[Rfam]
RNA sequence: UGGACGCGUCGCAACUGGCGCUGGGUGGAUGACCACCGGGGAGCGACAACAGCAGCGGACAUCGGGUCGGACGCCUGGGCCCGAGCC
Numbered sequence: 001u002g003g004a005c006g007c008g009u010c011g012c013a014a015c016u017g018g019c020g021c022u023g024g025g026u027g028g029a030u031g032a033c034c035a036c037c038g039g040g041g042a043g044c045g046a047c048a049a050c051a052g053c054a055g056c057g058g059a060c061a062u063c064g065g066g067u068c069g070g071a072c073g074c075c076u077g078g079g080c081c082c083g084a085g086c087c
Base pairs, nucleotide, nucleotide: 008047009046010045011044012043015040016039017075018074019073020072025036026035027034028033064082065081066080067079068078
A member of the RNA family "ZMP/ZTP riboswitch aptamer (pfl RNA motif)" from Phytoactinopolyspora mesophila, 87 nucleotides long. The match comes from Rfam's covariance-model search (49 bits).